The record is an 80-nucleotide RNA sequence from Leucobacter denitrificans, which matches "ZMP/ZTP riboswitch aptamer (pfl RNA motif)" in Rfam.
[Rfam]
RNA sequence: UGAACUCGUCGUGACUGGCGUGCAGAUGGAAACCAUCGGGGAGCGACAUUUUUGAUAGGCCGCUCGCCUGGGCCGCAGAU
Dot-bracket structure: ..((...(((((..(([[[[.....((((...))))..))..)))))...)).....((((...]]]]..))))......
Numbered sequence: 001u002g003a004a005c006u007c008g009u010c011g012u013g014a015c016u017g018g019c020g021u022g023c024a025g026a027u028g029g030a031a032a033c034c035a036u037c038g039g040g041g042a043g044c045g046a047c048a049u050u051u052u053u054g055a056u057a058g059g060c061c062g063c064u065c066g067c068c069u070g071g072g073c074c075g076c077a078g079a080u
Stems, first nucleotide, its partner, number of pairs: 003052002008047005015040002017068004026036004058074004